[Rfam]
RNA sequence: GGUUUAUAAAGAAGCGGCGAGAGAUCAGGCUCGAAGAACCGCUGGCAACCCUAAAAGGUUUAGAAGGUGCCAAUUCCUGUCCCGGAGAAUAGUUAACCGGGGGAUAUAAAUU
Numbered sequence: 001g002g003u004u005u006a007u008a009a010a011g012a013a014g015c016g017g018c019g020a021g022a023g024a025u026c027a028g029g030c031u032c033g034a035a036g037a038a039c040c041g042c043u044g045g046c047a048a049c050c051c052u053a054a055a056a057g058g059u060u061u062a063g064a065a066g067g068u069g070c071c072a073a074u075u076c077c078u079g080u081c082c083c084g085g086a087g088a089a090u091a092g093u094u095a096a097c098c099g100g101g102g103g104a105u106a107u108a109a110a111u112u
Stems, first nucleotide, its partner, number of pairs: 001112008013043005021032003026079004044071004049067002051063004075104001081101005
The record is a 112-nucleotide RNA sequence from Mucilaginibacter glaciei, which matches "SAM riboswitch aptamer (S box leader)" in Rfam. Rfam's curators write: The SAM riboswitch is found upstream of a number of genes which code for proteins involved in methionine or cysteine biosynthesis in Gram-positive bacteria. A search with the family's covariance model found it, with a score of 75 bits. The organism belongs to Mucilaginibacter, within Bacteria.